Overview:
The record is a 90-nucleotide RNA from Canis lupus, which matches "Small nucleolar RNA SNORD91 family" in Rfam. The pairing is the family consensus, mapped onto this sequence. Rfam classes the family as a C/D-box small nucleolar RNA. Gene Ontology terms of the family: RNA processing and nucleolus. A reference for the family is Huttenhofer et al. (2001), "RNomics: an experimental approach that identifies 201 candidates for novel, small, non-messenger RNAs in mouse", EMBO J. The match comes from Rfam's covariance-model search (71 bits).
[Rfam]
RNA sequence: UAGAAAAGUCCAUGAUGGUGUUACCCAACUUGUCACCCUGUCUGAAGCAUCUCAGUGAUGCAAUCUCUGUGUUCUGAGACUUCUCUAAGU
Number, nucleotide and partner (000 for none) at each position: 001u000002a000003g000004a084005a000006a082007a081008g080009u079010c078011c000012a000013u000014g000015a000016u000017g000018g000019u000020g000021u000022u000023a000024c000025c000026c000027a000028a000029c000030u000031u000032g000033u000034c000035a000036c000037c000038c000039u000040g000041u000042c000043u000044g000045a000046a000047g000048c000049a000050u000051c000052u000053c000054a000055g000056u000057g000058a000059u000060g000061c000062a000063a000064u000065c000066u000067c000068u000069g000070u000071g000072u000073u000074c000075u000076g000077a000078g010079a009080c008081u007082u006083c000084u004085c000086u000087a000088a000089g000090u000